Shown here is a 149-nucleotide RNA from Phaeobacter sp. 22II1-1F12B, a member of the family "FMN riboswitch aptamer (RFN element)". Rfam links the family to the GO term FMN binding. It scores 108 bits against the family's covariance model.
RNA sequence: CUCUGUUCUCAGGGCGGGGUGCAAUUCCCCACCGGCGGUAUGCGGUGUCAAAUCCGCGAGCCCGCGAGCGCACCGGAAUAUUCCGGUGGUCAGCAGACCCGGUGCGAGGCCGGGGCCGACGGUUAUAGUCCGGAUGAAAGAGGACGUGC
Numbered sequence: 001c002u003c004u005g006u007u008c009u010c011a012g013g014g015c016g017g018g019g020u021g022c023a024a025u026u027c028c029c030c031a032c033c034g035g036c037g038g039u040a041u042g043c044g045g046u047g048u049c050a051a052a053u054c055c056g057c058g059a060g061c062c063c064g065c066g067a068g069c070g071c072a073c074c075g076g077a078a079u080a081u082u083c084c085g086g087u088g089g090u091c092a093g094c095a096g097a098c099c100c101g102g103u104g105c106g107a108g109g110c111c112g113g114g115g116c117c118g119a120c121g122g123u124u125a126u127a128g129u130c131c132g133g134a135u136g137a138a139a140g141a142g143g144a145c146g147u148g149c
Base pairs, nucleotide, nucleotide: 004146005145006144007143008142009141010140017029018028019027031129032128033118034117035065036064037063038062060116061115068094069093098114099113100112101111102110120132121131122130
Dot-bracket structure: ...(((((((......(((.......))).[[((((((.....................[[))))..((.......................))...(((((.......)))))]])).(((.....]]))).......)))))))...